Annotation: This 105-nucleotide RNA from Ectobacillus ponti belongs to the Rfam family "SAM riboswitch aptamer (S box leader)". The base pairs follow the family's consensus structure, which is taken from published work.
[Rfam]
RNA sequence: UACUUAUCCAGAGCGGUGGAGGGAACUGGCCCGGAGAAGCCCGGCAACCUGUCAAGAGCAAGGUGCCACAUCCAGCAAAAUGGGACCCAUUUUGAAAGAUAAGGU
Numbered sequence: 001u002a003c004u005u006a007u008c009c010a011g012a013g014c015g016g017u018g019g020a021g022g023g024a025a026c027u028g029g030c031c032c033g034g035a036g037a038a039g040c041c042c043g044g045c046a047a048c049c050u051g052u053c054a055a056g057a058g059c060a061a062g063g064u065g066c067c068a069c070a071u072c073c074a075g076c077a078a079a080a081u082g083g084g085a086c087c088c089a090u091u092u093u094g095a096a097a098g099a100u101a102a103g104g105u
Stems, first nucleotide, its partner, number of pairs: 003103006013042001015041003021032003026075004043067004048063002052057001071097001076094006